Rfam assigns this 97-nucleotide RNA sequence from Chromatocurvus halotolerans to the family "Bacterial small signal recognition particle RNA". The signal recognition particle (SRP) is a universally conserved ribonucleoprotein involved in the co-translational targeting of proteins to membranes. It is annotated as a non-coding RNA gene. The source organism's lineage runs through Bacteria, Pseudomonadati, Pseudomonadota, Cellvibrionales and Chromatocurvus. The match comes from Rfam's covariance-model search (70 bits). The base pairs follow the family's consensus structure, which is taken from published work.
RNA sequence: GGAUGGUCCCCUCGCAACGACAGGCAGUGAACCCCGCCAGGCCCGGAAGGGAGCAACGGUAGCUGCCGAUGCGUGUGCCGGGGUGUGGCUGUUCGGG
Numbered sequence: 001g002g003a004u005g006g007u008c009c010c011c012u013c014g015c016a017a018c019g020a021c022a023g024g025c026a027g028u029g030a031a032c033c034c035c036g037c038c039a040g041g042c043c044c045g046g047a048a049g050g051g052a053g054c055a056a057c058g059g060u061a062g063c064u065g066c067c068g069a070u071g072c073g074u075g076u077g078c079c080g081g082g083g084u085g086u087g088g089c090u091g092u093u094c095g096g097g
Base pairs, nucleotide, nucleotide: 004091005090006089007088008087010083011082012081013080014079015075017074018073019072023067024066025065026064027063028062034059035058036057042051043050044049